[Rfam]
Nucleotides: 107
Stems, first nucleotide, its partner, number of pairs: 006095005011059004016053001017031005039052004065088004069082004
Number, partner (000 for none) and nucleotide at each position: 001000u002000a003000g004000u005000u006095c007094c008093a009092c010091a011059a012058g013057g014056g015000g016053g017031g018030c019029u020028g021027c022000g023000a024000c025000a026000u027021g028020c029019g030018g031017c032000u033000g034000a035000g036000a037000g038000u039052g040051a041050a042049u043000g044000u045000u046000c047000g048000a049042g050041u051040u052039c053016u054000g055000a056014c057013c058012c059011u060000u061000u062000g063000a064000a065088c066087c067086u068085g069082u070081u071080a072079g073000u074000u075000a076000g077000c078000a079072c080071u081070a082069g083000c084000g085068u086067a087066g088065g089000g090000a091010u092009g093008u094007g095006g096000a097000u098000u099000u100000g101000c102000c103000g104000a105000u106000u107000a